RNA sequence: UAUUAGCACAUAUGUCAAAUUCCUAAUUAACGUUUAAUUUUUAUACCCAUCGUUUCUUAGAGCCGUAAUUGUGCUGAUAUCAAAACCAGGGAAGAACCUACCAUAUAGAAGUGCUAAAUGCACUUAACGAUCGCGGCGCCUCCUCGGCCACGGGCGUGUUUGGACACUAUUCCCACAUAU
Number, nucleotide and partner (000 for none) at each position: 001u000002a000003u000004u076005a075006g074007c073008a072009c071010a070011u000012a000013u000014g000015u000016c000017a000018a000019a000020u000021u000022c000023c060024u059025a058026a057027u000028u000029a054030a053031c052032g051033u000034u000035u000036a000037a000038u000039u000040u000041u000042u000043a000044u000045a000046c000047c000048c000049a000050u000051c032052g031053u030054u029055u000056c000057u026058u025059a024060g023061a000062g000063c000064c000065g000066u000067a000068a000069u000070u010071g009072u008073g007074c006075u005076g004077a000078u000079a000080u000081c000082a000083a000084a000085a000086c000087c000088a000089g174090g173091g172092a171093a170094g000095a000096a000097c000098c000099u000100a000101c163102c162103a161104u000105a000106u000107a000108g000109a000110a124111g123112u122113g121114c120115u000116a000117a000118a000119u000120g114121c113122a112123c111124u110125u000126a000127a157128c156129g155130a000131u000132c152133g151134c000135g149136g148137c147138g000139c000140c000141u000142c000143c000144u000145c000146g000147g137148c136149c135150a000151c133152g132153g000154g000155c129156g128157u127158g000159u000160u000161u103162g102163g101164a000165c000166a000167c000168u000169a000170u093171u092172c091173c090174c089175a000176c000177a000178u000179a000180u000
A member of the RNA family "Small nucleolar RNA snR85" from Saccharomyces paradoxus, 180 nucleotides long. The sequence is in the family's curated seed alignment. The literature on the family includes a 2004 paper in Nucleic Acids Res by Schattner et al., "Genome-wide searching for pseudouridylation guide snoRNAs: analysis of the Saccharomyces cerevisiae genome". The source organism's lineage runs through Eukaryota, Dikarya, saccharomyceta, Saccharomycetes and Saccharomyces paradoxus.